The family of this 76-nucleotide RNA from Clostridium sp. CAG:307 is "c-di-GMP-I riboswitch aptamer". The family's consensus secondary structure is taken from published work. Its family is annotated with cyclic-di-GMP binding in the Gene Ontology.

[Rfam]
RNA sequence: CAAUUCUAAUGGCAAAGCAGUAGUGAUAUUGUGACGCAAAACUAAAGGGUCUUAUUCAAGAUAGCCAGCUGCAACU
Numbered sequence: 001c002a003a004u005u006c007u008a009a010u011g012g013c014a015a016a017g018c019a020g021u022a023g024u025g026a027u028a029u030u031g032u033g034a035c036g037c038a039a040a041a042c043u044a045a046a047g048g049g050u051c052u053u054a055u056u057c058a059a060g061a062u063a064g065c066c067a068g069c070u071g072c073a074a075c076u
Stems, first nucleotide, its partner, number of pairs: 012037002017032006040070001042068002047066002049062003